[Rfam]
RNA sequence: UAAGUAAAUUGGUCAAUCGCAUCGAUAGAUGAGGAAAGUCUGCGCUCCAUAGAGCAGGAUGCCGGUGAAAGACCGGUGGGGGCAACCCUAAGGAAAGUGCAACAGAGAGAUACCGCCUGAAGUUCAGGUAAGGGUGGAAAGGCGAGGUAAGAGCUCACCGGGUUAUUAGUAAUAAUAAUGCCAUGUAAACCCCAUUCGGAGCAAGACCAAGAUAGGAUAAAACAGAUGUUGCUCGCAUCUGCCGGAAGGUAGGUCGCUUUAAUUUAUUGGUGACAAUAAAUAUAGAUAGAUGAUUGAUAAAACAGAACGCAGCUUAUAGAUUUACUUACUUA
Numbered sequence: 001u002a003a004g005u006a007a008a009u010u011g012g013u014c015a016a017u018c019g020c021a022u023c024g025a026u027a028g029a030u031g032a033g034g035a036a037a038g039u040c041u042g043c044g045c046u047c048c049a050u051a052g053a054g055c056a057g058g059a060u061g062c063c064g065g066u067g068a069a070a071g072a073c074c075g076g077u078g079g080g081g082g083c084a085a086c087c088c089u090a091a092g093g094a095a096a097g098u099g100c101a102a103c104a105g106a107g108a109g110a111u112a113c114c115g116c117c118u119g120a121a122g123u124u125c126a127g128g129u130a131a132g133g134g135u136g137g138a139a140a141g142g143c144g145a146g147g148u149a150a151g152a153g154c155u156c157a158c159c160g161g162g163u164u165a166u167u168a169g170u171a172a173u174a175a176u177a178a179u180g181c182c183a184u185g186u187a188a189a190c191c192c193c194a195u196u197c198g199g200a201g202c203a204a205g206a207c208c209a210a211g212a213u214a215g216g217a218u219a220a221a222a223c224a225g226a227u228g229u230u231g232c233u234c235g236c237a238u239c240u241g242c243c244g245g246a247a248g249g250u251a252g253g254u255c256g257c258u259u260u261a262a263u264u265u266a267u268u269g270g271u272g273a274c275a276a277u278a279a280a281u282a283u284a285g286a287u288a289g290a291u292g293a294u295u296g297a298u299a300a301a302a303c304a305g306a307a308c309g310c311a312g313c314u315u316a317u318a319g320a321u322u323u324a325c326u327u328a329c330u331u332a
Stems, first nucleotide, its partner, number of pairs: 001328010011317001012298007020031004036315003040312005045201004052234004057197005062076005077091001078089004092192002097190002099186003113133002115129006141159002144156003161181001162179007205255004215243002225239005262281008
This 332-nucleotide sequence from Peptoniphilus sp. oral taxon 386 belongs to the Rfam family "Bacterial RNase P class A". About the family: Ribonuclease P (RNase P) is a ubiquitous endoribonuclease, found in archaea, bacteria and eukarya as well as chloroplasts and mitochondria. The match comes from Rfam's covariance-model search (258 bits).